Annotation:
Shown here is an 86-nucleotide RNA from Nematostella vectensis, a member of the family "mir-2041 microRNA precursor family". Gene Ontology terms of the family: RISC complex and miRNA-mediated post-transcriptional gene silencing. Lineage of the source: Eukaryota > Eumetazoa > Anthozoa > Edwardsiidae > Nematostella.

RNA sequence: AACCCAGAGGUAUUUUCCUCUAACGUUUCACUCACGAGAAUAAAUUUUCUCGCGGGUGAAACUUUAGAGGAAAAUACCCCUGGGUU
Dot-bracket structure: (((((((.(((((((((((((((.((((((((......................)))))))).))))))))))))))).)))))))